The family of this 504-nucleotide RNA sequence from Streptomyces qinzhouensis is "Saccharopolyspora sRNA 350". A search with the family's covariance model found it, with a score of 114 bits.
RNA sequence: ACGGCGGUGUACUGCCAGACCCCGUCGGCGUCGAGCAGUGCGCUCUGGCCGAACCGGUCACCGUCGGCGAGCACUCCGGUGACGGUCUCGUCGCCGUAGGGGCCCUCCGAGAUCUGUUCGAUCCGGCCGUGCGCGAUCAGAUGGAUCUGCUCGGCGGGGGUACCGCGCUCGACGAUCACCUCACCGGCGCGGAAGUCACGCUGGACGCACCGGCCCGCGAUGGCGGAGAGCACCUCGGCGUCGUCGAAGCCGCGCAGCAGGGAGAGUUCGCCGAGUUCCUGGGGGAUCACCCGGACCUCGGCACCGUCCUGGACGAACUCGAUACGACCGUCGCCCACGGUGUAGGUCAGACGGCGGUUCACCCGGUACGUACCGCCGGAGACCUCGACCCACGGCAGCAUCCUGAGCAGCCAGCGGGAGGUGAUCUCCUGCAUCUGCGGGGCGGAUUUGGUCGUGGUGGCGAGAUUGCGGGCAGCCGCCGUGCCGAGGCUGCUCUGCGGGCGG
Dot-bracket structure: .....(((..(...(..(......((((..((...(((.(((...(.(((((.....((.(((((((.......(.(..(.(((((......))))).))).....))).....((((((..(((..(((.((...(..((....((....((.(((..(...((.......))..)......))).))..))..)))...)).)))..).))..)).)))))))).)).....((...((.(((....(((.(.(((.(.(......).)...)))).)))..))).))...))..)))))).))).)))...))..)))).....)((((......)))).........((((((...((.......)).))))))..)...)..)))((.((.(.(((.((..(.......).))..))).).)).)).....((.(..((.((((.((.......)).))).).))..).))...(((.(..((......))..).))).
The family's RNA type in Rfam is antisense RNA.